Rfam assigns this 57-nucleotide sequence from Anisodus acutangulus to the family "Plastid-ndhJ 3UTR RNA".
RNA sequence: UCAUGUACUUUGUACUGCGUAGAUUCCUUAGAUGGAUUCGAGAAAGGCAUAUAGGAA
Numbered sequence: 001u002c003a004u005g006u007a008c009u010u011u012g013u014a015c016u017g018c019g020u021a022g023a024u025u026c027c028u029u030a031g032a033u034g035g036a037u038u039c040g041a042g043a044a045a046g047g048c049a050u051a052u053a054g055g056a057a
Base pairs, nucleotide, nucleotide: 019037020036023033024032025031
A search with the family's covariance model found it, with a score of 55 bits. The base pairs follow the family's consensus structure, which was predicted with LocARNA. About the family: Plastid ndhJ is a non-coding RNA (ncRNA) present in plastids. It was identified as a short stem-loop motif in the 3 prime untranslate region (3UTR) of ndhJ gene. By type it is a cis-regulatory element. The source organism's lineage runs through Eukaryota, Tracheophyta, Pentapetalae, Solanoideae and Anisodus.